[Rfam]
RNA sequence: AGCCGGGUCACGUAUCUUGACUGGGGGUGCGAGUCUCUUUAGACUCAUGCACCCCUAAAUAUGGCAGGGCUUCAGCCCUGCCAUUUAUUUAUGGUGUAAAUAAAUAGCGUCGAAAGACGGACAGUGGAGCUAGUAGA
Numbered sequence: 001a002g003c004c005g006g007g008u009c010a011c012g013u014a015u016c017u018u019g020a021c022u023g024g025g026g027g028u029g030c031g032a033g034u035c036u037c038u039u040u041a042g043a044c045u046c047a048u049g050c051a052c053c054c055c056u057a058a059a060u061a062u063g064g065c066a067g068g069g070c071u072u073c074a075g076c077c078c079u080g081c082c083a084u085u086u087a088u089u090u091a092u093g094g095u096g097u098a099a100a101u102a103a104a105u106a107g108c109g110u111c112g113a114a115a116g117a118c119g120g121a122c123a124g125u126g127g128a129g130c131u132a133g134u135a136g137a
Stems, first nucleotide, its partner, number of pairs: 003019001005017004023054003027050003031046002035042002062083009103134001105132004109118003
The family of this 137-nucleotide RNA sequence from Pseudomonas fulva is "Pseudomonas rpsL leader". Taxonomically the source falls in Pseudomonas fulva (Bacteria, Pseudomonadati, Pseudomonadota, Pseudomonas). The match comes from Rfam's covariance-model search (99 bits). Rfam links the family to the GO term regulation of gene expression. The family's RNA type in Rfam is cis-regulatory leader. The base pairs follow the family's consensus structure, which is taken from published work.